Shown here is a 115-nucleotide RNA from Paraburkholderia steynii, a member of the family "Burkholderia sRNA Bp1_Cand684_SIPHT". Pairs were carried over by alignment from the consensus structure, which was predicted with RNAalifold. The source organism's lineage runs through Bacteria, Pseudomonadota, Betaproteobacteria, Burkholderiaceae and Paraburkholderia. It scores 44 bits against the family's covariance model. By type it is a small RNA.
RNA sequence: AGAAAAGUAGGUGCCGCCCCGCACAGGGGCGACGCGUGAAGCAUGCUAAUGAAUCGCGGAUGCCAGCGAAAACCCUAAAAAAACCAACCCCACGCAGGCAAACCGCGAACACCAC
Numbered sequence: 001a002g003a004a005a006a007g008u009a010g011g012u013g014c015c016g017c018c019c020c021g022c023a024c025a026g027g028g029g030c031g032a033c034g035c036g037u038g039a040a041g042c043a044u045g046c047u048a049a050u051g052a053a054u055c056g057c058g059g060a061u062g063c064c065a066g067c068g069a070a071a072a073c074c075c076u077a078a079a080a081a082a083a084c085c086a087a088c089c090c091c092a093c094g095c096a097g098g099c100a101a102a103c104c105g106c107g108a109a110c111a112c113c114a115c
Stems, first nucleotide, its partner, number of pairs: 011073002015031006058064002093107003